[Rfam]
RNA sequence: GCAGUACUGUGUGCAUAGUUCCCAUCUGUGUCUGGUGGUAUGGUGUAUUUGCGUUUUGCAUUUAGACUGUACUGCUCACAUAGAACCUGUGGCCAAAGAUUAACUUGAGAUCAUAGUACUGGUCUAGUGAAGUCUGAAAGACAAACUUACUGCUGACCAGCCUCCAAAUUCUCAAACAUCU
Number, nucleotide and partner (000 for none) at each position: 001g000002c000003a000004g000005u000006a000007c000008u000009g000010u000011g000012u000013g090014c089015a088016u000017a000018g000019u000020u000021c000022c000023c000024a000025u000026c000027u000028g000029u082030g081031u080032c000033u078034g077035g076036u074037g073038g072039u071040a070041u069042g000043g067044u066045g000046u064047a063048u000049u000050u060051g059052c058053g000054u000055u000056u000057u000058g052059c051060a050061u000062u000063u047064a046065g000066a044067c043068u000069g041070u040071a039072c038073u037074g036075c000076u035077c034078a033079c000080a031081u030082a029083g000084a000085a000086c000087c000088u015089g014090u013091g000092g000093c000094c000095a000096a000097a000098g000099a000100u000101u000102a000103a000104c000105u000106u174107g173108a172109g171110a170111u000112c000113a000114u000115a000116g000117u000118a000119c160120u159121g158122g157123u156124c155125u000126a154127g153128u152129g151130a000131a000132g142133u141134c140135u000136g000137a000138a000139a000140g134141a133142c132143a000144a000145a000146c000147u000148u000149a000150c000151u129152g128153c127154u126155g124156a123157c122158c121159a120160g119161c000162c000163u000164c000165c000166a000167a000168a000169u000170u110171c109172u108173c107174a106175a000176a000177c000178a000179u000180c000181u000